[Rfam]
RNA sequence: CGGGGCUGGGGAAGGGCUGCUGGGUGGUGGGGCCGACGGGCCCGGCCUCGUACCAGCCAGCCUCACCCGCGCCCGAGAUCAACUCCCGGGCGGGCUCCGUGCUGGGCUUCAUCCUGUGCAGUAACAGGUGUGAGCAUCCAUGCAGCGUUUUGAUGGUCAUGUAUGAUACUGCAUACAAGG
Numbered sequence: 001c002g003g004g005g006c007u008g009g010g011g012a013a014g015g016g017c018u019g020c021u022g023g024g025u026g027g028u029g030g031g032g033c034c035g036a037c038g039g040g041c042c043c044g045g046c047c048u049c050g051u052a053c054c055a056g057c058c059a060g061c062c063u064c065a066c067c068c069g070c071g072c073c074c075g076a077g078a079u080c081a082a083c084u085c086c087c088g089g090g091c092g093g094g095c096u097c098c099g100u101g102c103u104g105g106g107c108u109u110c111a112u113c114c115u116g117u118g119c120a121g122u123a124a125c126a127g128g129u130g131u132g133a134g135c136a137u138c139c140a141u142g143c144a145g146c147g148u149u150u151u152g153a154u155g156g157u158c159a160u161g162u163a164u165g166a167u168a169c170u171g172c173a174u175a176c177a178a179g180g
Stems, first nucleotide, its partner, number of pairs: 003074004008068003015062004019057004024053002026047003030043001032041003085106003088102001090100003115175009125165002131159003135155004142149001
Shown here is a 180-nucleotide sequence from Pygoscelis papua, a member of the family "Small Cajal body specific RNA 16". Rfam describes the family as follows. scaRNAs are a specific class of small nuclear RNAs which localise to the Cajal bodies and guide the modification of RNA polymerase II transcribed spliceosomal RNAs U1, U2, U4, U5 and U12. ACA47 belongs to the H/ACA box class of guide RNAs as it has the predicted hairpin-hinge-hairpin-tail structure, the conserved H/ACA-box motifs and is found associated with GAR1. Pairs were carried over by alignment from the consensus structure, which was predicted with RNAfold. Rfam 15.1 lists 790 matches to the family in 514 species. Taxonomically the source falls in Pygoscelis (Eukaryota, Metazoa, Vertebrata, Neoaves). A reference for the family is Darzacq et al. (2002), "Cajal body-specific small nuclear RNAs: a novel class of 2'-O-methylation and pseudouridylation guide RNAs", EMBO J. A search with the family's covariance model found it, with a score of 128 bits.